[Rfam]
RNA sequence: GAGAGAGGAAGGACGGCCGCCGGGUCUGUUGACCUGAGGAAAGUCUCCCCACCGUAAAAAUACACGAACGCCUGUAAAGGGCGUCAGGCGAGAGCCUGGGCAAUGGCACAGAAACGCUAUCGCCCCAUGUCAAUGCGGUGAUACCUGAUGGUUGAGGUCGCAUGGUGGCGAAUGGAACGGCGAAUCCUCGUGGGUGCAAGUCAGUUCCGGGAAAUGUGCCCGGAAAAUUUUAAUUGACGCUAAGCUGAAUACCGUCGCUGCAAGCGCUCGUUAUUUGAUGAGCCGUUCUGCAUCGUCUACAUGAUGCGGAACUUUUGCAGUAACAGAAGGGAGCUUACUCUCCUCACUC
Numbered sequence: 001g002a003g004a005g006a007g008g009a010a011g012g013a014c015g016g017c018c019g020c021c022g023g024g025u026c027u028g029u030u031g032a033c034c035u036g037a038g039g040a041a042a043g044u045c046u047c048c049c050c051a052c053c054g055u056a057a058a059a060a061u062a063c064a065c066g067a068a069c070g071c072c073u074g075u076a077a078a079g080g081g082c083g084u085c086a087g088g089c090g091a092g093a094g095c096c097u098g099g100g101c102a103a104u105g106g107c108a109c110a111g112a113a114a115c116g117c118u119a120u121c122g123c124c125c126c127a128u129g130u131c132a133a134u135g136c137g138g139u140g141a142u143a144c145c146u147g148a149u150g151g152u153u154g155a156g157g158u159c160g161c162a163u164g165g166u167g168g169c170g171a172a173u174g175g176a177a178c179g180g181c182g183a184a185u186c187c188u189c190g191u192g193g194g195u196g197c198a199a200g201u202c203a204g205u206u207c208c209g210g211g212a213a214a215u216g217u218g219c220c221c222g223g224a225a226a227a228u229u230u231u232a233a234u235u236g237a238c239g240c241u242a243a244g245c246u247g248a249a250u251a252c253c254g255u256c257g258c259u260g261c262a263a264g265c266g267c268u269c270g271u272u273a274u275u276u277g278a279u280g281a282g283c284c285g286u287u288c289u290g291c292a293u294c295g296u297c298u299a300c301a302u303g304a305u306g307c308g309g310a311a312c313u314u315u316u317g318c319a320g321u322a323a324c325a326g327a328a329g330g331g332a333g334c335u336u337a338c339u340c341u342c343c344u345c346a347c348u349c
Stems, first nucleotide, its partner, number of pairs: 001349003005345005010339002012256005021036005041336003045333005050196004059217001063192005068084005085098005099187002104183001106181002120171003123167001125165006143152002200238004204228003
Description
Archaeal RNase P: a 349-nucleotide RNA from Methanohalobium evestigatum. From the family's description: Ribonuclease P (RNase P) is a ubiquitous endoribonuclease, found in archaea, bacteria and eukarya as well as chloroplasts and mitochondria. Its best characterised activity is the generation of mature 5'-ends of tRNAs by cleaving the 5'-leader elements of precursor-tRNAs. Cellular RNase Ps are ribonucleoproteins. The family is grouped with related families in Rfam's "RNaseP clan". Rfam classes the family as a ribozyme. For this family Rfam cites "Ribonuclease P: unity and diversity in a tRNA processing ribozyme" (Frank and Pace, Annu Rev Biochem, 1998). Its family is annotated with multimeric ribonuclease P complex, tRNA processing and ribonuclease P activity in the Gene Ontology.